[Rfam]
RNA sequence: UAAGUGCUGUACAACUGGCGGAAGAUGCCUUAUGGGCAUUGUGGGAUAACCCACAGGGAGUACAGUUUAUAUUAAAAAAGCCGACCGCCUGGGCAACGUUA
Dot-bracket structure: ...(.(((((((..(([[[[[...................((((......)))).))..))))))).)...........(((..]]]]]..))).......
Numbered sequence: 001u002a003a004g005u006g007c008u009g010u011a012c013a014a015c016u017g018g019c020g021g022a023a024g025a026u027g028c029c030u031u032a033u034g035g036g037c038a039u040u041g042u043g044g045g046a047u048a049a050c051c052c053a054c055a056g057g058g059a060g061u062a063c064a065g066u067u068u069a070u071a072u073u074a075a076a077a078a079a080g081c082c083g084a085c086c087g088c089c090u091g092g093g094c095a096a097c098g099u100u101a
Stems, first nucleotide, its partner, number of pairs: 004068001006066007015057002017089005041054004080094003
Annotation:
Rfam assigns this 101-nucleotide RNA from Lachnospira eligens to the family "ZMP/ZTP riboswitch aptamer (pfl RNA motif)". It scores 56 bits against the family's covariance model.